A member of the RNA family "Purine riboswitch aptamer" from Clostridium uliginosum, 98 nucleotides long. Gene Ontology term of the family: purine nucleobase biosynthetic process.
RNA sequence: AGAUAGAGCACAUUAAAAACUCAUAUAUCCUCUGAAUAUGGCAGGGAGUAUCUACCGGAAACCUUAAAUUUCCGACUAUGAGUGAAUUUAGUAUAAGA
Numbered sequence: 001a002g003a004u005a006g007a008g009c010a011c012a013u014u015a016a017a018a019a020c021u022c023a024u025a026u027a028u029c030c031u032c033u034g035a036a037u038a039u040g041g042c043a044g045g046g047a048g049u050a051u052c053u054a055c056c057g058g059a060a061a062c063c064u065u066a067a068a069u070u071u072c073c074g075a076c077u078a079u080g081a082g083u084g085a086a087u088u089u090a091g092u093a094u095a096a097g098a
Base pairs, nucleotide, nucleotide: 019083020082021081022080023079024078025077030046031045032044033043034042056074057073058072059071060070061069
Dot-bracket structure: ..................(((((((....(((((.......))))).........((((((.......))))))..)))))))...............